[Rfam]
RNA sequence: UGGCUGAGAGGGUAUCUCGAGGUUCGCUGGAUUUUUCCACUCGGCUG
Numbered sequence: 001u002g003g004c005u006g007a008g009a010g011g012g013u014a015u016c017u018c019g020a021g022g023u024u025c026g027c028u029g030g031a032u033u034u035u036u037c038c039a040c041u042c043g044g045c046u047g
Stems, first nucleotide, its partner, number of pairs: 001047008010025004015020001028039004
RNA: DUF3800-VI RNA